RNA: NiCo (Nickel/Cobalt) riboswitch aptamer
Organism: Caproiciproducens sp. NJN-50
RNA sequence: ACAGUACAAACUGAGCAGGCGAUGCCCGCAAGGGUGUGGGGCCGGGUCGCCCAAUGAGCGGCAACAGAUUGCAAUUUGAGCACAUCUGUGGGACAGUA
Numbered sequence: 001a002c003a004g005u006a007c008a009a010a011c012u013g014a015g016c017a018g019g020c021g022a023u024g025c026c027c028g029c030a031a032g033g034g035u036g037u038g039g040g041g042c043c044g045g046g047u048c049g050c051c052c053a054a055u056g057a058g059c060g061g062c063a064a065c066a067g068a069u070u071g072c073a074a075u076u077u078g079a080g081c082a083c084a085u086c087u088g089u090g091g092g093a094c095a096g097u098a
Stems, first nucleotide, its partner, number of pairs: 010097004016092001018043003022037006046062005064089006